This 70-nucleotide sequence from Microvirga sp. VF16 belongs to the Rfam family "Makes More Granules Regulator RNA (mmgR)". The source organism's lineage runs through Bacteria, Pseudomonadota, Alphaproteobacteria, Hyphomicrobiales and Microvirga. Pairs were carried over by alignment from the consensus structure. SuhB later renamed mmgR (makes more granules regulator) was a putative non-coding RNA found multiple times in the Agrobacterium tumefaciens genome and related alpha-proteobacteria. Other non-coding RNAs uncovered in the same analysis include: speF, ybhL, metA, and serC.Several studies inSinorhizobium meliloti showed that suhB element is indeed a non-coding RNA:firstly it was detected on Northern blot and called Sm8RNA, secondly in an RNAseq study referred to as SmelC689.The mutant phenotype's (strain lacking the small RNA) cytoplasm contains higher content of polyhydroxybutyrate (PBH)storage granules than wild type strain. Gene Ontology terms of the family: DNA-templated transcription, termination, protein binding and response to nitrogen compound.
RNA sequence: UGUUGCAGCCCUUCUUGGGCGUUUCCUCCCUAAACUUCGGGCCGCCUUGAGCGGCCUUUUUCUGCCCAGU
Number, nucleotide and partner (000 for none) at each position: 001u000002g000003u000004u000005g000006c000007a000008g020009c019010c018011c017012u000013u000014c000015u000016u000017g011018g010019g009020c008021g000022u000023u000024u000025c000026c000027u000028c000029c000030c000031u000032a000033a000034a000035c000036u000037u000038c000039g000040g056041g055042c054043c053044g052045c051046c000047u000048u000049g000050a000051g045052c044053g043054g042055c041056c040057u000058u000059u000060u000061u000062c000063u000064g000065c000066c000067c000068a000069g000070u000